[Rfam]
RNA: SL1 RNA
Organism: Loa loa
RNA sequence: ACCCAAGUUUGAGGUAAUUGAAUGUUUCGGCCCAGAGUUUCGGCCUACUGUGGCUUGAAGUAAAAUUUUUGGAACGUCCUGCAAUUUUGUGGGACAAC
Number, nucleotide and partner (000 for none) at each position: 001a015002c014003c013004c000005a000006a000007g000008u000009u000010u000011g000012a000013g003014g002015u001016a000017a000018u000019u000020g000021a000022a000023u000024g000025u060026u059027u058028c057029g000030g054031c053032c052033c000034a000035g000036a000037g000038u000039u000040u000041c000042g000043g000044c000045c000046u000047a000048c000049u000050g000051u000052g032053g031054c030055u000056u000057g028058a027059a026060g025061u000062a000063a000064a000065a000066u000067u000068u000069u000070u000071g000072g000073a000074a000075c000076g095077u094078c093079c092080u091081g090082c089083a000084a000085u000086u000087u000088u000089g082090u081091g080092g079093g078094a077095c076096a000097a000098c000